[Rfam]
RNA sequence: GGAGUGGCUCCGCACUGCUGCCUGACCCCCGACCCGGCAGCGGUGCGGGGCCACCUU
Numbered sequence: 001g002g003a004g005u006g007g008c009u010c011c012g013c014a015c016u017g018c019u020g021c022c023u024g025a026c027c028c029c030c031g032a033c034c035c036g037g038c039a040g041c042g043g044u045g046c047g048g049g050g051c052c053a054c055c056u057u
Base pairs, nucleotide, nucleotide: 002056004054005053007051008050009049010048011047012046013045014044015043016042017041018040019039020038021037022036

Background: A member of the RNA family "F6 TB sRNA" from Rhodococcoides kyotonense, 57 nucleotides long. The source organism's lineage runs through Bacteria, Actinomycetota, Mycobacteriales, Nocardiaceae and Rhodococcoides. A search with the family's covariance model found it, with a score of 66 bits. For this family Rfam cites "Identification of small RNAs in Mycobacterium tuberculosis" (Arnvig and Young, Mol Microbiol, 2009). It is annotated as a small RNA.